[Rfam]
RNA sequence: CACCCGGCGUGGCAGGCGUCAGGGGCGUCGGCCAGGCUUGGAACAGGGGCUGGCCGCGCGCAUGCCGGGGAAGCGAAGGGGUCGGAUGUCGGGGGACAUCCGGCCCCUUUUUU
Numbered sequence: 001c002a003c004c005c006g007g008c009g010u011g012g013c014a015g016g017c018g019u020c021a022g023g024g025g026c027g028u029c030g031g032c033c034a035g036g037c038u039u040g041g042a043a044c045a046g047g048g049g050c051u052g053g054c055c056g057c058g059c060g061c062a063u064g065c066c067g068g069g070g071a072a073g074c075g076a077a078g079g080g081g082u083c084g085g086a087u088g089u090c091g092g093g094g095g096a097c098a099u100c101c102g103g104c105c106c107c108u109u110u111u112u113u
Stems, first nucleotide, its partner, number of pairs: 003069009012059002016028003030055006038047002077108014

The record is a 113-nucleotide RNA from Lysobacter sp., which matches "Xanthomonadaceae sRNA asX1" in Rfam.
The organism belongs to Lysobacter, within Bacteria.